[Rfam]
RNA sequence: UGCCUGUGAUGAUGAAUUUUAUGUGCCAACUUGGCUGGGCCACAGUGCCCAGAUAUAUGGGCA
Numbered sequence: 001u002g003c004c005u006g007u008g009a010u011g012a013u014g015a016a017u018u019u020u021a022u023g024u025g026c027c028a029a030c031u032u033g034g035c036u037g038g039g040c041c042a043c044a045g046u047g048c049c050c051a052g053a054u055a056u057a058u059g060g061g062c063a
Stems, first nucleotide, its partner, number of pairs: 001063008
Description:
Rfam assigns this 63-nucleotide RNA sequence from Diceros bicornis to the family "Small nucleolar RNA SNORD66". It is annotated as a C/D-box small nucleolar RNA. snoRNA HBII-142 is part of the C/D family of snoRNAs. It is the human orthologue of the mouse MBII-142 snoRNA and is predicted to guide 2'O-ribose methylation of small 18S rRNA at residue C1272. On this family, see Huttenhofer et al., EMBO J 2001: "RNomics: an experimental approach that identifies 201 candidates for novel, small, non-messenger RNAs in mouse". The match comes from Rfam's covariance-model search (32 bits).